[Rfam]
RNA sequence: AUGAAACAAAAACAAUGGAAGCCCUUCCUCUCAUCCAUCCUUGCCGCUCCGAAGCGGCGCCAGUGUGAAU
Numbered sequence: 001a002u003g004a005a006a007c008a009a010a011a012a013c014a015a016u017g018g019a020a021g022c023c024c025u026u027c028c029u030c031u032c033a034u035c036c037a038u039c040c041u042u043g044c045c046g047c048u049c050c051g052a053a054g055c056g057g058c059g060c061c062a063g064u065g066u067g068a069a070u
Stems, first nucleotide, its partner, number of pairs: 036067002040063002042059007

A member of the RNA family "BsrC" from Geobacillus thermodenitrificans, 70 nucleotides long.
It is one of the family's seed sequences.
A reference for the family is Saito et al. (2008), "Novel small RNA-encoding genes in the intergenic regions of Bacillus subtilis", Gene.
About the family: The 301 nucleotide sequence from Kouji Nakamura has been trimmed to a highly conserved ~85 nucleotide long core to form this family.
The organism belongs to Geobacillus thermodenitrificans, within Bacteria.